Background
A member of the RNA family "Plastid-psbA-1 3UTR RNA" from Camphora micrantha, 108 nucleotides long. Plastid psbA-1 is a non-coding RNA (ncRNA) present in plastids. It was identified in inverted repeat sequences in the 3 prime untranslate region (3UTR) of photosystem II quinone-binding protein (psbA). The organism belongs to Camphora, within Eukaryota. The match comes from Rfam's covariance-model search (55 bits). A reference for the family is Richter et al. (2023), "Retrograde signaling in plants: A critical review focusing on the GUN pathway and beyond", Plant Commun.
RNA sequence: CUGAAGCAUCUACUUUCAAGAUAACAGAAAGAAAAGUAGUGUAUACAAGUCGUUGAAGGAUCAAUAUCAAACUUCUUAAUUGAACAAGAAGUUUGGUAUUGAUCCAUU
Numbered sequence: 001c002u003g004a005a006g007c008a009u010c011u012a013c014u015u016u017c018a019a020g021a022u023a024a025c026a027g028a029a030a031g032a033a034a035a036g037u038a039g040u041g042u043a044u045a046c047a048a049g050u051c052g053u054u055g056a057a058g059g060a061u062c063a064a065u066a067u068c069a070a071a072c073u074u075c076u077u078a079a080u081u082g083a084a085c086a087a088g089a090a091g092u093u094u095g096g097u098a099u100u101g102a103u104c105c106a107u108u
Stems, first nucleotide, its partner, number of pairs: 008022004058105010069094003073090005
Dot-bracket structure: .......((((.......))))...................................((((((((((.(((.(((((........))))).))).))))))))))...